[Rfam]
Annotation:
The family of this 119-nucleotide RNA sequence from Rhizobium sp. BK275 is "Alphaproteobacterial ar14". From the family's description: Smr14C2 was renamed NfeR1 (Nodule Formation Efficiency RNA) highly expressed in salt stress and during the symbiotic interaction on legume roots.

RNA sequence: AAUCAUCCGACGGCUUCUCCUCCUCCCAUAGCCGUCCGAUAGGAUCGACAACACUCCUCCUCCCAGUUGUCGAUCAAGUUUUAAGCCCGACGCACCUCCUCCCGCGUCGGGCUUUUCAU
Numbered sequence: 001a002a003u004c005a006u007c008c009g010a011c012g013g014c015u016u017c018u019c020c021u022c023c024u025c026c027c028a029u030a031g032c033c034g035u036c037c038g039a040u041a042g043g044a045u046c047g048a049c050a051a052c053a054c055u056c057c058u059c060c061u062c063c064c065a066g067u068u069g070u071c072g073a074u075c076a077a078g079u080u081u082u083a084a085g086c087c088c089g090a091c092g093c094a095c096c097u098c099c100u101c102c103c104g105c106g107u108c109g110g111g112c113u114u115u116u117c118a119u
Base pairs, nucleotide, nucleotide: 007038009036010035011034012033013032014031015030043075044074045073046072047071048070049069050068051067052066083114084113085112086111087110088109089108090107091106092105093104